RNA sequence: UAACGAUUUUGUUAGGCGAGGCGUCUAUACAAACAUAGGGUGCUGCCCAGAAACAUCGAAAGAUGCCAAUGGGUAAAACAUGAAUAGUUGAAUUAAGGCUUUUCUAAAGGUACCUAAAAACAUUACGGUGUUUUUUACGUUGUAUAGUGCUAAAACUCAACGAAGAAAUCAUAA
Numbered sequence: 001u002a003a004c005g006a007u008u009u010u011g012u013u014a015g016g017c018g019a020g021g022c023g024u025c026u027a028u029a030c031a032a033a034c035a036u037a038g039g040g041u042g043c044u045g046c047c048c049a050g051a052a053a054c055a056u057c058g059a060a061a062g063a064u065g066c067c068a069a070u071g072g073g074u075a076a077a078a079c080a081u082g083a084a085u086a087g088u089u090g091a092a093u094u095a096a097g098g099c100u101u102u103u104c105u106a107a108a109g110g111u112a113c114c115u116a117a118a119a120a121c122a123u124u125a126c127g128g129u130g131u132u133u134u135u136u137a138c139g140u141u142g143u144a145u146a147g148u149g150c151u152a153a154a155a156c157u158c159a160a161c162g163a164a165g166a167a168a169u170c171a172u173a174a
Base pairs, nucleotide, nucleotide: 005170006169007168008167009166010165011161012160013096015157016156020151021150022149025147026146027145028144029143030142031141032140039114040113041112042111043110045074046073047072048071049070054065055064056063057062082104083103084102087099088098089097116135117134118133119132120131121130
RNA: M-box riboswitch aptamer (ykoK leader)
Organism: Vagococcus zengguangii